This 136-nucleotide RNA from Veillonella sp. oral taxon 780 belongs to the Rfam family "PyrR binding site". The source organism's lineage runs through Bacteria, Bacillati, Bacillota, Veillonella and Veillonella sp. oral taxon 780.

[Rfam]
RNA sequence: GAACCUUUUAAAUUAGUCCUGUGAGGCUAGUAAGGGAACGUAGUAGGAGUACUUUACCUAUAUCUAUAGGUGUGCUCUAUAAUAGAAUCACUAUAACUAUGCGACCUCUUGCCUUACGGCAAGGGGUCUUUUUGCG
Numbered sequence: 001g002a003a004c005c006u007u008u009u010a011a012a013u014u015a016g017u018c019c020u021g022u023g024a025g026g027c028u029a030g031u032a033a034g035g036g037a038a039c040g041u042a043g044u045a046g047g048a049g050u051a052c053u054u055u056a057c058c059u060a061u062a063u064c065u066a067u068a069g070g071u072g073u074g075c076u077c078u079a080u081a082a083u084a085g086a087a088u089c090a091c092u093a094u095a096a097c098u099a100u101g102c103g104a105c106c107u108c109u110u111g112c113c114u115u116a117c118g119g120c121a122a123g124g125g126g127u128c129u130u131u132u133u134g135c136g
Base pairs, nucleotide, nucleotide: 004035005034006033007032013030014029015028016027017026018025049078051076053074055072056071057070058069059068060067061066101130103128104127105126106125107124108123109122110121111120112119113118

Rfam describes the family as follows. This family represents the PyrR binding site and terminator structure. Gene Ontology terms of the family: pyrimidine nucleobase transport and pyrimidine nucleobase biosynthetic process.